Rfam assigns this 77-nucleotide RNA from Diaphorina citri to the family "mir-87 microRNA precursor family". It scores 52 bits against the family's covariance model. The literature on the family includes a 2003 paper in Dev Cell by Aravin et al., "The small RNA profile during Drosophila melanogaster development".
RNA sequence: CACGCAACGCCUGUAACUUAGCUUCAACCUGUGCAUUUUUAAACCCGAGGUGAGCAAAGUUUCAGGUGAGUGGGUGU
Numbered sequence: 001c002a003c004g005c006a007a008c009g010c011c012u013g014u015a016a017c018u019u020a021g022c023u024u025c026a027a028c029c030u031g032u033g034c035a036u037u038u039u040u041a042a043a044c045c046c047g048a049g050g051u052g053a054g055c056a057a058a059g060u061u062u063c064a065g066g067u068g069a070g071u072g073g074g075u076g077u
Stems, first nucleotide, its partner, number of pairs: 002075002005072002008068006016060004023054004028050003